[Rfam]
The family of this 133-nucleotide RNA from Cognatiluteimonas weifangensis is "Molybdenum/Tungsten riboswitch aptamer (Moco RNA motif)".
RNA sequence: UCCGCGCCGCAACUCCGAGUCGGCGGGCCUGGGUUCCUGCGGGAAGACGGCCCACCGACCGAGGCCGCAAGGCCGAGGGUGGUCGCGGAAACGCGGCCGCCUCCCGCUGGAAAGGAGUGACAACAUGGCCGCG
Numbered sequence: 001u002c003c004g005c006g007c008c009g010c011a012a013c014u015c016c017g018a019g020u021c022g023g024c025g026g027g028c029c030u031g032g033g034u035u036c037c038u039g040c041g042g043g044a045a046g047a048c049g050g051c052c053c054a055c056c057g058a059c060c061g062a063g064g065c066c067g068c069a070a071g072g073c074c075g076a077g078g079g080u081g082g083u084c085g086c087g088g089a090a091a092c093g094c095g096g097c098c099g100c101c102u103c104c105c106g107c108u109g110g111a112a113a114g115g116a117g118u119g120a121c122a123a124c125a126u127g128g129c130c131g132c133g
Stems, first nucleotide, its partner, number of pairs: 003127002006124001012118005019059005025053005034045003061074001063073001065071001077102011103110002